[Rfam]
RNA sequence: GAGCGAAGUGAUGGUAUACCAUCUUUCGGGACUGAAUCCCCUGAUGACAUCUUAAUAAAACUGAUCGCUC
Numbered sequence: 001g002a003g004c005g006a007a008g009u010g011a012u013g014g015u016a017u018a019c020c021a022u023c024u025u026u027c028g029g030g031a032c033u034g035a036a037u038c039c040c041c042u043g044a045u046g047a048c049a050u051c052u053u054a055a056u057a058a059a060a061c062u063g064a065u066c067g068c069u070c
Base pairs, nucleotide, nucleotide: 001070002069003068004067005066006065
RNA: Small nucleolar RNA SNORD2